Rfam assigns this 545-nucleotide part of an RNA from Thrips palmi to the family "Eukaryotic large subunit ribosomal RNA". The source organism's lineage runs through Eukaryota, Bilateria, Arthropoda, Thysanoptera and Thrips. A search with the family's covariance model found it, with a score of 2076 bits.

[Rfam]
RNA sequence: GUGGGGAAAGAAGACCCUGUUGAGCUUGACUUUAGUUUGGCUGCGUACAACGACAUGAGAGGCGUAGCAUAAGUGGGAGGCCUUUGGUCGACAGUGAAAUACCACUACUUUCAUUGUUGUUGUACUUACUCAGUUGGGCGGAGGACGGCUCUCCGACAAGGAGUUCUGCCGAUCUUCUCGCACCAAGCAUUUGACGCGGACCGGGUGAGAUCGCACUUGUGCUUUCGACCCACCGCAUACCCAAGUGUGAUCCGAUCUGAGGACACAGCCAGGCGGGGAGUUUGACUGGGGCGGUACAUCCAUCAAAGAAUAACGUGGGUGUCCUAAGACCAGCUCAGCGAGGCCAGAAACCUCGCUUGGAGUAUAAGGGCAAAAGCUGGUUUGAUCCUGAUGUUCAGUAUGCACAGGGACGGCGAAAGCCAGGCCUUACGAUCCUUUUGGCUUGAAGAGUCUUCAGCAAGAGGUGUCAGAAAAGUUACCACAGGGAUAACUGGCUUGUGGCGGCCAAGCGUUCAUAGCGACGUCGCCUUUAAAUGUUGUUGCGA
Numbered sequence: 001g002u003g004g005g006g007a008a009a010g011a012a013g014a015c016c017c018u019g020u021u022g023a024g025c026u027u028g029a030c031u032u033u034a035g036u037u038u039g040g041c042u043g044c045g046u047a048c049a050a051c052g053a054c055a056u057g058a059g060a061g062g063c064g065u066a067g068c069a070u071a072a073g074u075g076g077g078a079g080g081c082c083u084u085u086g087g088u089c090g091a092c093a094g095u096g097a098a099a100u101a102c103c104a105c106u107a108c109u110u111u112c113a114u115u116g117u118u119g120u121u122g123u124a125c126u127u128a129c130u131c132a133g134u135u136g137g138g139c140g141g142a143g144g145a146c147g148g149c150u151c152u153c154c155g156a157c158a159a160g161g162a163g164u165u166c167u168g169c170c171g172a173u174c175u176u177c178u179c180g181c182a183c184c185a186a187g188c189a190u191u192u193g194a195c196g197c198g199g200a201c202c203g204g205g206u207g208a209g210a211u212c213g214c215a216c217u218u219g220u221g222c223u224u225u226c227g228a229c230c231c232a233c234c235g236c237a238u239a240c241c242c243a244a245g246u247g248u249g250a251u252c253c254g255a256u257c258u259g260a261g262g263a264c265a266c267a268g269c270c271a272g273g274c275g276g277g278g279a280g281u282u283u284g285a286c287u288g289g290g291g292c293g294g295u296a297c298a299u300c301c302a303u304c305a306a307a308g309a310a311u312a313a314c315g316u317g318g319g320u321g322u323c324c325u326a327a328g329a330c331c332a333g334c335u336c337a338g339c340g341a342g343g344c345c346a347g348a349a350a351c352c353u354c355g356c357u358u359g360g361a362g363u364a365u366a367a368g369g370g371c372a373a374a375a376g377c378u379g380g381u382u383u384g385a386u387c388c389u390g391a392u393g394u395u396c397a398g399u400a401u402g403c404a405c406a407g408g409g410a411c412g413g414c415g416a417a418a419g420c421c422a423g424g425c426c427u428u429a430c431g432a433u434c435c436u437u438u439u440g441g442c443u444u445g446a447a448g449a450g451u452c453u454u455c456a457g458c459a460a461g462a463g464g465u466g467u468c469a470g471a472a473a474a475g476u477u478a479c480c481a482c483a484g485g486g487a488u489a490a491c492u493g494g495c496u497u498g499u500g501g502c503g504g505c506c507a508a509g510c511g512u513u514c515a516u517a518g519c520g521a522c523g524u525c526g527c528c529u530u531u532a533a534a535u536g537u538u539g540u541u542g543c544g545a
Base pairs, nucleotide, nucleotide: 001543002542004541008538009537016485017484018483019482021481022480023477024476025475026474027473029281030280031279032278036273037272038271039270040269041268042267045125046124047123048122049121050120051119052118053117054116055114056113057112058111059110060109061108072106073105074104075103076102079089080088129261130260131259132258133257139254140253141252142251147170148169149168187248188247189246190245191244192243193242284297285295286294287293298320299319300318301317302316303315323424324423329381330380331379332378333377334376335361336360338356339355340354341353342352343351362371363370386410387409388408389407392404393403394402412421413420414419435463436462437461438460439459440458443457444456445455446454494535496533500528501527502526503525504524505523509519510518

On this family, see Yusupov et al., Science 2001: "Crystal structure of the ribosome at 5.5 A resolution".